Rfam assigns this 115-nucleotide sequence from Cryptotermes secundus to the family "Potassium channel RNA editing signal". It scores 80 bits against the family's covariance model. The literature on the family includes a 2004 paper in Nat Struct Mol Biol by Bhalla et al., "Control of human potassium channel inactivation by editing of a small mRNA hairpin". Rfam classes the family as a cis-regulatory element. The source organism's lineage runs through Eukaryota, Metazoa, Pancrustacea, Kalotermitidae and Cryptotermes.

[Rfam]
RNA sequence: GUCCAGGUAUGGCGACAUGGUGCCGGGCACGAUAGCCGGCAAGAUCGUGGGAGGUGUCUGCUCGCUGAGCGGGGUGCUGGUCAUCGCCUUGCCGGUACCUGUCAUCGUGUCCAAC
Numbered sequence: 001g002u003c004c005a006g007g008u009a010u011g012g013c014g015a016c017a018u019g020g021u022g023c024c025g026g027g028c029a030c031g032a033u034a035g036c037c038g039g040c041a042a043g044a045u046c047g048u049g050g051g052a053g054g055u056g057u058c059u060g061c062u063c064g065c066u067g068a069g070c071g072g073g074g075u076g077c078u079g080g081u082c083a084u085c086g087c088c089u090u091g092c093c094g095g096u097a098c099c100u101g102u103c104a105u106c107g108u109g110u111c112c113a114a115c
Stems, first nucleotide, its partner, number of pairs: 001115002006111001008109005014103004019098001022096002038078004051063002